Shown here is a 110-nucleotide RNA, a member of the family "trpB ncRNA motif". The literature on the family includes a 2024 paper in Nucleic Acids Res by Narunsky et al., "The discovery of novel noncoding RNAs in 50 bacterial genomes". trpB ncRNA motif was reported as a strong cis regulatory motif candidate, with potential to be a cis regulatory riboswitch type, it have been identified in Firmicutes and Fusobacteria. The motif have been recognised upstream of an uncharacterized ABC transporter with strong homology to amino acid transporters. It is also occasionally located upstream of trpB gene, that codes for a tryptophan synthase. Rfam classes the family as a cis-regulatory element.
RNA sequence: CUCAUAGAUACAACUUUAGAAGACAAAUUCUAAACUUUGUAUCUAUGUUGGUUUGUUUAAGUUGAAUUUUCAACCGCGUAGAUGAUUGAUCUAUGCGGUUUUUUGUUUAA
Numbered sequence: 001c002u003c004a005u006a007g008a009u010a011c012a013a014c015u016u017u018a019g020a021a022g023a024c025a026a027a028u029u030c031u032a033a034a035c036u037u038u039g040u041a042u043c044u045a046u047g048u049u050g051g052u053u054u055g056u057u058u059a060a061g062u063u064g065a066a067u068u069u070u071c072a073a074c075c076g077c078g079u080a081g082a083u084g085a086u087u088g089a090u091c092u093a094u095g096c097g098g099u100u101u102u103u104u105g106u107u108u109a110a
Stems, first nucleotide, its partner, number of pairs: 003047009015034007073099011
Dot-bracket structure: ..(((((((((...(((((((......)))))))....))))))))).........................(((((((((((.....)))))))))))...........